[Rfam]
RNA sequence: GACGAAACUUCUGGAGAGACUUUCUUGAUUGUCGACAGCAAGAGAGAGAGCACCGAAGGAGCAAAUUCGACUGGAACAGCAGACGAAUAAUCUCUCAGGUAAAGGGGACAGAGGGCAAACG
Numbered sequence: 001g002a003c004g005a006a007a008c009u010u011c012u013g014g015a016g017a018g019a020c021u022u023u024c025u026u027g028a029u030u031g032u033c034g035a036c037a038g039c040a041a042g043a044g045a046g047a048g049a050g051c052a053c054c055g056a057a058g059g060a061g062c063a064a065a066u067u068c069g070a071c072u073g074g075a076a077c078a079g080c081a082g083a084c085g086a087a088u089a090a091u092c093u094c095u096c097a098g099g100u101a102a103a104g105g106g107g108a109c110a111g112a113g114g115g116c117a118a119a120c121g
Base pairs, nucleotide, nucleotide: 008114009113010112011111012110013109020050021049022048023047024046025045026044052100053099054098055096056095059094060093061092066086
The family of this 121-nucleotide RNA sequence from Brevibacillus fulvus is "Glycine riboswitch aptamer".
A search with the family's covariance model found it, with a score of 52 bits.